The record is a 57-nucleotide sequence from Rhodococcoides trifolii, which matches "F6 TB sRNA" in Rfam. By type it is a small RNA. NCBI's taxonomy places the organism under Bacteria, Actinomycetota, Actinomycetes, Nocardiaceae, Rhodococcoides. Rfam 15.1 lists 310 matches to the family in 304 species. The match comes from Rfam's covariance-model search (50 bits).

RNA sequence: CCAGUGGCUCCGCACUUCUGCCUGACCCCCGACCCGGUAGAGGUGCGGAGCCUUUUC
Numbered sequence: 001c002c003a004g005u006g007g008c009u010c011c012g013c014a015c016u017u018c019u020g021c022c023u024g025a026c027c028c029c030c031g032a033c034c035c036g037g038u039a040g041a042g043g044u045g046c047g048g049a050g051c052c053u054u055u056u057c
Base pairs, nucleotide, nucleotide: 003055004054007051008050009049010048011047012046013045014044015043016042017041018040019039020038021037022036